RNA: Antisense RNA which regulates isiA expression
RNA sequence: AAUAACCAAAAAUCACGGAGGGGUCUAAGGUAGGAUUGCUGACAACGCGCACAUUUUGUACUACAGGGUCAUAAAUUCCUCCUAAGAUCGUGGCUUUGGCCACAAGGAGAAACGCGCCUAUACCGAGUAAGACCAGAUGAAUACCAAGAAUCGUAGUCAUUUUGUUGGCAUCAUCCCA
Numbered sequence: 001a002a003u004a005a006c007c008a009a010a011a012a013u014c015a016c017g018g019a020g021g022g023g024u025c026u027a028a029g030g031u032a033g034g035a036u037u038g039c040u041g042a043c044a045a046c047g048c049g050c051a052c053a054u055u056u057u058g059u060a061c062u063a064c065a066g067g068g069u070c071a072u073a074a075a076u077u078c079c080u081c082c083u084a085a086g087a088u089c090g091u092g093g094c095u096u097u098g099g100c101c102a103c104a105a106g107g108a109g110a111a112a113c114g115c116g117c118c119u120a121u122a123c124c125g126a127g128u129a130a131g132a133c134c135a136g137a138u139g140a141a142u143a144c145c146a147a148g149a150a151u152c153g154u155a156g157u158c159a160u161u162u163u164g165u166u167g168g169c170a171u172c173a174u175c176c177c178a
Stems, first nucleotide, its partner, number of pairs: 136175005145168001147166002